[Rfam]
RNA: mir-21 microRNA precursor family
RNA sequence: CGUCAGAUAGCUUAUCAGACUGGUGUUGGCUGUUAAUUUAGCAUGGCAACAGCAGUCUGUAGGCUGACUGAAG
Numbered sequence: 001c002g003u004c005a006g007a008u009a010g011c012u013u014a015u016c017a018g019a020c021u022g023g024u025g026u027u028g029g030c031u032g033u034u035a036a037u038u039u040a041g042c043a044u045g046g047c048a049a050c051a052g053c054a055g056u057c058u059g060u061a062g063g064c065u066g067a068c069u070g071a072a073g
Stems, first nucleotide, its partner, number of pairs: 008066008018057005024051005030045001
Dot-bracket structure: .......((((((((..(((((.(((((.(..............).))))).))))).)))))))).......